The family of this 91-nucleotide RNA sequence from [Eubacterium] nodatum is "pan motif".
By type it is a cis-regulatory element.
[Rfam]
RNA sequence: GAGAUGGCAUUUACAGGUAAAGCUAUACUCUGUUAUAUACACUUUUUAUAAAAAUUUAUGAGCUUAUAUUGUAACCGAAUGAGACUCUAGU
Numbered sequence: 001g002a003g004a005u006g007g008c009a010u011u012u013a014c015a016g017g018u019a020a021a022g023c024u025a026u027a028c029u030c031u032g033u034u035a036u037a038u039a040c041a042c043u044u045u046u047u048a049u050a051a052a053a054a055u056u057u058a059u060g061a062g063c064u065u066a067u068a069u070u071g072u073a074a075c076c077g078a079a080u081g082a083g084a085c086u087c088u089a090g091u
Stems, first nucleotide, its partner, number of pairs: 001030003004026005010021002060087003063083005069078003